[Rfam]
Rfam assigns this 57-nucleotide sequence from Rhododendron williamsianum to the family "Plastid-psbN 5UTR RNA". Rfam describes the family as follows. Plastid psbN is a non-coding RNA (ncRNA) recognised in plastids. It was reported as a conserved 11 stem-loop in the prime untranslated region (5UTR) of psbN genes. It has been reported that the motif is retained in a subset of mature transcripts in barley, which can suggests a possible role in transcript alternative 5 prime processing.
RNA sequence: GUAUAUGCCCAUCAAAGGAGUCGUUCCCCAUCCAGGAGCGACUUUACCAUCAUCAUC
Numbered sequence: 001g002u003a004u005a006u007g008c009c010c011a012u013c014a015a016a017g018g019a020g021u022c023g024u025u026c027c028c029c030a031u032c033c034a035g036g037a038g039c040g041a042c043u044u045u046a047c048c049a050u051c052a053u054c055a056u057c
Stems, first nucleotide, its partner, number of pairs: 017045011
Source information: Rfam classes the family as a cis-regulatory element.